DUF805 RNA: a 68-nucleotide RNA sequence from Psychroflexus torquis. The family's RNA type in Rfam is cis-regulatory element. The base pairs follow the family's consensus structure, which is taken from published work.
RNA sequence: ACAAAGUGGAGGCCAGAACCCAUUAGAAAAACGGCACGGAACCGAAAAGUGAUAUGAGUAGGACAAAA
Numbered sequence: 001a002c003a004a005a006g007u008g009g010a011g012g013c014c015a016g017a018a019c020c021c022a023u024u025a026g027a028a029a030a031a032c033g034g035c036a037c038g039g040a041a042c043c044g045a046a047a048a049g050u051g052a053u054a055u056g057a058g059u060a061g062g063a064c065a066a067a068a
Stems, first nucleotide, its partner, number of pairs: 006023004035051003042062002